[Rfam]
RNA sequence: GAAGAGAAGACUUAGAAUCUUCGCAGCUCCCUCGUGUUAAUAGUGACAUUCAUGGCCGGAUGUCAUGGUUAGUGAAUC
Numbered sequence: 001g002a003a004g005a006g007a008a009g010a011c012u013u014a015g016a017a018u019c020u021u022c023g024c025a026g027c028u029c030c031c032u033c034g035u036g037u038u039a040a041u042a043g044u045g046a047c048a049u050u051c052a053u054g055g056c057c058g059g060a061u062g063u064c065a066u067g068g069u070u071a072g073u074g075a076a077u078c
Stems, first nucleotide, its partner, number of pairs: 001022005037072005043066009
About this RNA:
The record is a 78-nucleotide sequence, which matches "L13-Bacteroidia ribosomal protein leader" in Rfam. The family's consensus secondary structure is taken from published work. By type it is a cis-regulatory leader. The literature on the family includes a 2020 paper in BMC Microbiol by Eckert and Weinberg, "Discovery of 20 novel ribosomal leader candidates in bacteria and archaea".